This 76-nucleotide RNA from Bombyx mori belongs to the Rfam family "mir-2788 microRNA precursor family". Its family is annotated with miRNA-mediated post-transcriptional gene silencing and RISC complex in the Gene Ontology. Lineage of the source: Eukaryota > Hexapoda > Pterygota > Glossata > Bombyx. The base pairs follow the family's consensus structure, which was predicted with RNAalifold.
RNA sequence: GCCGUAGAACUGGGGUUUCAAAGCGGUAUGUGCCUUCGAUUAUGCAAUGCCCUUGGAAAUCCCAAACGUGCUGGCG
Numbered sequence: 001g002c003c004g005u006a007g008a009a010c011u012g013g014g015g016u017u018u019c020a021a022a023g024c025g026g027u028a029u030g031u032g033c034c035u036u037c038g039a040u041u042a043u044g045c046a047a048u049g050c051c052c053u054u055g056g057a058a059a060u061c062c063c064a065a066a067c068g069u070g071c072u073g074g075c076g
Base pairs, nucleotide, nucleotide: 001075002074003073004071005070006069011064012063013062014061015060016059017058018057019056021054022053023052025051026050027049028048029047031046032045033044